[Rfam]
RNA sequence: AUAUGAGGUAGAGGUCGCGAUAAUUAGGAAUUAUAACUUAGCAUGAGGAUGCUGUGAGGUUAUAAGGAGGGAACAUCGCCGAAAUAUUUACUAGCCUCACUAGUAGAUGUUGGGACAACAGUUGAUAGCUGUUGAACUGUCUUAACUUUCAAAAGUUAAGUUGCGCUAUUCUUGUC
Numbered sequence: 001a002u003a004u005g006a007g008g009u010a011g012a013g014g015u016c017g018c019g020a021u022a023a024u025u026a027g028g029a030a031u032u033a034u035a036a037c038u039u040a041g042c043a044u045g046a047g048g049a050u051g052c053u054g055u056g057a058g059g060u061u062a063u064a065a066g067g068a069g070g071g072a073a074c075a076u077c078g079c080c081g082a083a084a085u086a087u088u089u090a091c092u093a094g095c096c097u098c099a100c101u102a103g104u105a106g107a108u109g110u111u112g113g114g115a116c117a118a119c120a121g122u123u124g125a126u127a128g129c130u131g132u133u134g135a136a137c138u139g140u141c142u143u144a145a146c147u148u149u150c151a152a153a154a155g156u157u158a159a160g161u162u163g164c165g166c167u168a169u170u171c172u173u174g175u176c
Base pairs, nucleotide, nucleotide: 007170008169009168010167011166017079018078019077020076021075024072031065032064033063034062035061036060037059038058083111084110085109086108087107088106089105090104091103092102093101094100112138113137116134117133118132119131120130121129122128141160142159143158144157145156146155
Rfam assigns this 176-nucleotide sequence from Vagococcus salmoninarum to the family "Lysine riboswitch aptamer". For this family Rfam cites "An mRNA structure in bacteria that controls gene expression by binding lysine" (Sudarsan et al., Genes Dev, 2003). It scores 87 bits against the family's covariance model. Rfam's curators write: Riboswitches are metabolite binding domains within certain messenger RNAs that serve as precision sensors for their corresponding targets. The family's consensus secondary structure is taken from published work. Lineage of the source: Bacteria > Bacillota > Lactobacillales > Enterococcaceae > Vagococcus.